[Rfam]
RNA sequence: CACAGGCUGGAACGCAGUCUAUUAUAUGUAUGUCAUUUUGAGUAAAGUAGUUCCUAUUUCAAGCGUUAUCUGUCGAUAUCACUUAUCUGAUGAAUUUCUUCUUAGUGCCGCCAUAUGUAAUAACUAAAAUCACAGCUUAUCGUCACCUACUUUUUAGGUGUACAUAAUCACUAGAGGAAAUUAAAAAAUGGCUAAAAUUACUGGUCAGGUAAAAUGGUUUGAUGCAGGUAAAGGUUUCGGUUUCAUCACUCCAGCAGACGGCAGCAAAGAUGUAUUCGUACAUUUCUCUGCAAUCGAAGGUAACGACUACAAAACAUUAGAUGAAGGCCAACAGGUUGAAUUCAAUGUUGAAGCUGGUCAAAAAGGUCCUUCAGCUGCAAACGUAGUUGCUAUCUAAUUUAAGCUAACGCUUAAUUAAGAUUUAAAAAACCGCCUCAGGGCGGUUUUUUGUUA
Number, nucleotide and partner (000 for none) at each position: 001c000002a000003c000004a020005g019006g018007c017008u016009g015010g000011a000012a000013c000014g000015c009016a008017g007018u006019c005020u004021a000022u000023u000024a000025u000026a000027u253028g252029u000030a000031u000032g249033u248034c000035a000036u000037u000038u000039u000040g000041a000042g000043u000044a000045a000046a000047g243048u000049a000050g242051u000052u240053c239054c234055u233056a000057u000058u232059u231060c000061a000062a000063g000064c000065g229066u228067u227068a000069u000070c224071u000072g223073u222074c221075g220076a219077u000078a218079u217080c216081a000082c000083u000084u190085a189086u188087c000088u186089g000090a000091u000092g000093a000094a000095u000096u000097u178098c177099u176100u175101c174102u173103u000104a000105g133106u132107g131108c000109c000110g000111c000112c000113a000114u000115a000116u000117g000118u000119a000120a000121u000122a000123a000124c000125u000126a000127a000128a000129a000130u000131c107132a106133c105134a000135g000136c000137u000138u000139a000140u000141c000142g000143u000144c000145a159146c158147c157148u156149a155150c000151u000152u000153u000154u000155u149156a148157g147158g146159u145160g000161u000162a000163c000164a000165u000166a000167a000168u000169c000170a000171c000172u000173a102174g101175a100176g099177g098178a097179a000180a000181u000182u000183a000184a000185a000186a088187a000188a086189u085190g084191g000192c204193u203194a000195a000196a000197a000198u000199u000200a000201c000202u000203g193204g192205u000206c000207a000208g000209g000210u000211a000212a000213a000214a000215u000216g080217g079218u078219u076220u075221g074222a073223u072224g070225c000226a000227g067228g066229u065230a000231a059232a058233g055234g054235u000236u000237u000238c000239g053240g052241u000242u050243u047244c000245a000246u000247c000248a033249c032250u000251c000252c028253a027254g000255c000256a000257g349258a348259c347260g346261g000262c000263a000264g000265c000266a000267a000268a000269g277270a276271u000272g000273u000274a000275u000276u270277c269278g000279u000280a000281c000282a336283u335284u334285u333286c000287u000288c000289u330290g329291c327292a000293a000294u321295c320296g000297a318298a317299g000300g000301u000302a000303a000304c000305g000306a000307c000308u000309a000310c000311a000312a000313a000314a000315c000316a000317u298318u297319a000320g295321a294322u000323g000324a000325a000326g000327g291328c000329c290330a289331a000332c000333a285334g284335g283336u282337u000338g000339a000340a000341u000342u000343c000344a000345a000346u260347g259348u258349u257350g000351a000352a000353g000354c000355u000356g369357g368358u000359c000360a000361a000362a000363a000364a000365g000366g000367u000368c357369c356370u000371u000372c000373a391374g390375c389376u000377g387378c386379a000380a000381a000382c000383g000384u000385a000386g378387u377388u000389g375390c374391u373392a000393u000394c000395u000396a416397a415398u414399u000400u000401a412402a411403g410404c409405u000406a000407a000408c000409g404410c403411u402412u401413a000414a398415u397416u396417a000418a000419g000420a000421u000422u000423u450424a449425a448426a447427a446428a445429a444430c443431c442432g441433c440434c439435u000436c000437a000438g000439g434440g433441c432442g431443g430444u429445u428446u427447u426448u425449u424450g423451u000452u000453a000
Rfam assigns this 453-nucleotide sequence from Budvicia aquatica to the family "cspA thermoregulator". On this family, see Giuliodori et al., Mol Cell 2010: "The cspA mRNA is a thermosensor that modulates translation of the cold-shock protein CspA". It is annotated as an RNA thermoregulator. A search with the family's covariance model found it, with a score of 165 bits. Gene Ontology terms of the family: response to temperature stimulus and regulation of translation.